[Rfam]
RNA: Small nucleolar RNA SNORA47
Organism: Esox lucius
RNA sequence: CGGAGGAUUGAGAAGGUUUGAUGGCUUGUUACUGUGCUGUUAAAACUGGUUAAUAACCUCCCAAAGAAAGAGGGCAGAUUCAACAACUGGUUCUGUAAUGUAGCUGAGAACUAAUGUU
Numbered sequence: 001c002g003g004a005g006g007a008u009u010g011a012g013a014a015g016g017u018u019u020g021a022u023g024g025c026u027u028g029u030u031a032c033u034g035u036g037c038u039g040u041u042a043a044a045a046c047u048g049g050u051u052a053a054u055a056a057c058c059u060c061c062c063a064a065a066g067a068a069a070g071a072g073g074g075c076a077g078a079u080u081c082a083a084c085a086a087c088u089g090g091u092u093c094u095g096u097a098a099u100g101u102a103g104c105u106g107a108g109a110a111c112u113a114a115u116g117u118u
Stems, first nucleotide, its partner, number of pairs: 002061005015047004019042007079110003084106002087103003